RNA sequence: CCCAGCGUGGCUGAUGACAGCACUGCUGCUGAGGCUCUGGGAUUGUUCAGUCUCAAAGUAAACCUCUGACGUGCCCUGG
Numbered sequence: 001c002c003c004a005g006c007g008u009g010g011c012u013g014a015u016g017a018c019a020g021c022a023c024u025g026c027u028g029c030u031g032a033g034g035c036u037c038u039g040g041g042a043u044u045g046u047u048c049a050g051u052c053u054c055a056a057a058g059u060a061a062a063c064c065u066c067u068g069a070c071g072u073g074c075c076c077u078g079g
Base pairs, nucleotide, nucleotide: 005074006073007072008071009070010021011020012019013018029050030049031048032047033046
The family of this 79-nucleotide RNA sequence from Prolemur simus is "Small nucleolar RNA U105B". The literature on the family includes a 2006 paper in Nucleic Acids Res by Yang et al., "snoSeeker: an advanced computational package for screening of guide and orphan snoRNA genes in the human genome". It scores 80 bits against the family's covariance model. The base pairs follow the family's consensus structure, which was predicted with WAR. Gene Ontology terms of the family: RNA processing and nucleolus.